[Rfam]
RNA sequence: CGCAAGUAUUUUACGAUUAAGAAGCACUUGCCUCUUGUACAGACCAUGUAUCAAUCU
Dot-bracket structure: .................(((((.((....)).)))))....................
This 57-nucleotide RNA belongs to the Rfam family "Plastid-rps18 3UTR RNA". It is annotated as a cis-regulatory element. The family has 238 seed sequences and 1,462 matches in Rfam 15.1. Rfam describes the family as follows. Plastid rps18 is a non-coding RNA (ncRNA) present in plastids. For this family Rfam cites "Retrograde signaling in plants: A critical review focusing on the GUN pathway and beyond" (Richter et al., Plant Commun, 2023).